[Rfam]
RNA: Group II catalytic intron D1-D4-5
RNA sequence: GAGAACUGACAAUCCGAUGGGUGGAAUGAUAGGGUAACGCCUUGAAACGCCCACGCUGAUACUCCGAUUGGCGGCGGUAUGCAACUGCCUAACCGUCAAAAGCUCGGUGAAGUCGGCAGAGAGUGACCGUAAGCGGGAUUUUUUUACCGCACGAAACCUGUCCAGAGGUGGGCGGCGUCACCUAUAUGCCGGGUGUCGGAUAC
Numbered sequence: 001g002a003g004a005a006c007u008g009a010c011a012a013u014c015c016g017a018u019g020g021g022u023g024g025a026a027u028g029a030u031a032g033g034g035u036a037a038c039g040c041c042u043u044g045a046a047a048c049g050c051c052c053a054c055g056c057u058g059a060u061a062c063u064c065c066g067a068u069u070g071g072c073g074g075c076g077g078u079a080u081g082c083a084a085c086u087g088c089c090u091a092a093c094c095g096u097c098a099a100a101a102g103c104u105c106g107g108u109g110a111a112g113u114c115g116g117c118a119g120a121g122a123g124u125g126a127c128c129g130u131a132a133g134c135g136g137g138a139u140u141u142u143u144u145u146a147c148c149g150c151a152c153g154a155a156a157c158c159u160g161u162c163c164a165g166a167g168g169u170g171g172g173c174g175g176c177g178u179c180a181c182c183u184a185u186a187u188g189c190c191g192g193g194u195g196u197c198g199g200a201u202a203c
Stems, first nucleotide, its partner, number of pairs: 018053006031043004054195004064107004068099007077090001079086001114191005123181005128153003135148002158175007